[Rfam]
RNA sequence: UCUCCGUUCCACCUGCUCUCUCGCCGGUCAGAGAGUGUGAGAGAGCGGGCGAAAUGGAGAGA
Numbered sequence: 001u002c003u004c005c006g007u008u009c010c011a012c013c014u015g016c017u018c019u020c021u022c023g024c025c026g027g028u029c030a031g032a033g034a035g036u037g038u039g040a041g042a043g044a045g046c047g048g049g050c051g052a053a054a055u056g057g058a059g060a061g062a
Base pairs, nucleotide, nucleotide: 001060002059003058004057005056006055007054010051012049013048014047015046016045017044019042020041021040022039
This 62-nucleotide sequence from Pristionchus pacificus belongs to the Rfam family "mir-8364 microRNA precursor family". The organism belongs to Pristionchus, within Eukaryota.